[Rfam]
RNA sequence: AAUUAUUCUCAGGGCGGGGCGAAACUCCCCACCGGCGGUAAAUCAGCAAUAGCUGCAAGCCCGCGAGCGCUUCCCGGUAAUAGGAAGGUCAGCAGAUCCGGUGUAAUUCCGGAGCCGACGGUUAGAGUCCGGAUGGGAGAGGGUAACG
Numbered sequence: 001a002a003u004u005a006u007u008c009u010c011a012g013g014g015c016g017g018g019g020c021g022a023a024a025c026u027c028c029c030c031a032c033c034g035g036c037g038g039u040a041a042a043u044c045a046g047c048a049a050u051a052g053c054u055g056c057a058a059g060c061c062c063g064c065g066a067g068c069g070c071u072u073c074c075c076g077g078u079a080a081u082a083g084g085a086a087g088g089u090c091a092g093c094a095g096a097u098c099c100g101g102u103g104u105a106a107u108u109c110c111g112g113a114g115c116c117g118a119c120g121g122u123u124a125g126a127g128u129c130c131g132g133a134u135g136g137g138a139g140a141g142g143g144u145a146a147c148g
Stems, first nucleotide, its partner, number of pairs: 003146008017029003031128002033117002035064004059115002067093002097113005119131003
Shown here is a 148-nucleotide RNA from Pantoea sp. Nvir, a member of the family "FMN riboswitch aptamer (RFN element)".
The family's consensus secondary structure is taken from published work.
Taxonomically the source falls in Pantoea (Bacteria, Pseudomonadati, Pseudomonadota, Enterobacterales).
A search with the family's covariance model found it, with a score of 121 bits.
Gene Ontology term of the family: FMN binding.